[Rfam]
RNA sequence: GCCGGUGCGUUCUCGCGGCCGGCAUUGAGGGCGCCGGCUCUCUCCGGCGCUCCUUGUGACCAAGUUGCUCAUAGGAGGAUUUGCAAAUGAGGA
Numbered sequence: 001g002c003c004g005g006u007g008c009g010u011u012c013u014c015g016c017g018g019c020c021g022g023c024a025u026u027g028a029g030g031g032c033g034c035c036g037g038c039u040c041u042c043u044c045c046g047g048c049g050c051u052c053c054u055u056g057u058g059a060c061c062a063a064g065u066u067g068c069u070c071a072u073a074g075g076a077g078g079a080u081u082u083g084c085a086a087a088u089g090a091g092g093a
Stems, first nucleotide, its partner, number of pairs: 001023006008017002029052009053091005061083006068077003
The record is a 93-nucleotide RNA sequence from Sphingomonas sp. JC676, which matches "Repression of heat shock gene expression (ROSE) element" in Rfam. The literature on the family includes a 2001 paper in Nucleic Acids Res by Nocker et al., "A mRNA-based thermosensor controls expression of rhizobial heat shock genes". A search with the family's covariance model found it, with a score of 53 bits. This family represents a 5' UTR cis-regulatory element found in heat shock mRNAs and is known as the ROSE (repression of heat shock gene expression) element. The ROSE element is a negative regulator of heat shock gene expression. Its family is annotated with response to temperature stimulus and regulation of translation in the Gene Ontology. Pairs were carried over by alignment from the consensus structure, which is taken from published work.